[Rfam]
RNA sequence: AUCGCUUCUCGGCCUUUUGGCUAAGAUCAAAGUGUAGUAUCUGUUCUUAUCAGCUUAAUAUCUGAUACGCUCCGCAUGCGGAGCCAGUAUAUUAAACUGAUUUUUGGAAUUUGAUGGAAGGUUAGGGGCUUGCUCCGCUUCCGUCACGGGUUGGCCCAGCAUUGCAGUAUCGCAGGGAUCGGCCCAUUUUAA
Dot-bracket structure: ......(((.((((....)))).))).....................((((((........)))))).((((((....))))))............................((((((((....((((....)))).))))))))..((((((.(((.((...........)).)))..)))))).......
This 192-nucleotide sequence from Rhynchophorus ferrugineus belongs to the Rfam family "U2 spliceosomal RNA".
The organism belongs to Rhynchophorus, within Eukaryota.
Rfam classes the family as a spliceosomal small nuclear RNA.
A search with the family's covariance model found it, with a score of 183 bits.